[Rfam]
Rfam assigns this 183-nucleotide RNA sequence from Rossellomorea vietnamensis to the family "Lysine riboswitch aptamer". A search with the family's covariance model found it, with a score of 118 bits. The source organism's lineage runs through Bacteria, Bacillati, Bacillota, Bacillaceae and Rossellomorea. From the family's description: Riboswitches are metabolite binding domains within certain messenger RNAs that serve as precision sensors for their corresponding targets. Allosteric rearrangement of mRNA structure is mediated by ligand binding, and this results in modulation of gene expression. This family includes riboswitches that sense lysine in a number of genes involved in lysine metabolism, including lysC.
RNA sequence: CGAUGGGGUAGAGGCGCAGGGUUCAAGAGUAAUCUGUUCGAGGAUGACAACUGAGAAAACAGAUGAAAGGGAAUCUUUGCCGAAGUAAAUAUGCAGGUCGAAGGUGUAUUUGCUGGGGUUAUCUUGAAAAAGGAUAACACUGUCAUUAUAGGGAAAUCCCUAUAAUGGGGAGCUACAGAUCGU
Numbered sequence: 001c002g003a004u005g006g007g008g009u010a011g012a013g014g015c016g017c018a019g020g021g022u023u024c025a026a027g028a029g030u031a032a033u034c035u036g037u038u039c040g041a042g043g044a045u046g047a048c049a050a051c052u053g054a055g056a057a058a059a060c061a062g063a064u065g066a067a068a069g070g071g072a073a074u075c076u077u078u079g080c081c082g083a084a085g086u087a088a089a090u091a092u093g094c095a096g097g098u099c100g101a102a103g104g105u106g107u108a109u110u111u112g113c114u115g116g117g118g119u120u121a122u123c124u125u126g127a128a129a130a131a132g133g134a135u136a137a138c139a140c141u142g143u144c145a146u147u148a149u150a151g152g153g154a155a156a157u158c159c160c161u162a163u164a165a166u167g168g169g170g171a172g173c174u175a176c177a178g179a180u181c182g183u
Stems, first nucleotide, its partner, number of pairs: 008176004016080006022073003032064007084114011115141002118138008143168010